[Rfam]
RNA: Small nucleolar RNA U2-30
Organism: Pteropus vampyrus
Nucleotides: 070
Base pairs, nucleotide, nucleotide: 001069002068003067004066013034014033015032017030018029
Number, partner (000 for none) and nucleotide at each position: 001069g002068a003067g004066c005000a006000g007000u008000g009000a010000u011000g012000a013034a014033a015032a016000a017030g018029u019000g020000u021000u022000a023000c024000u025000a026000u027000u028000g029018a030017c031000c032015u033014u034013u035000a036000u037000a038000a039000a040000u041000a042000u043000g044000g045000a046000g047000g048000u049000u050000u051000c052000u053000a054000c055000a056000c057000u058000u059000g060000a061000u062000c063000u064000g065000a066004g067003u068002u069001c070000a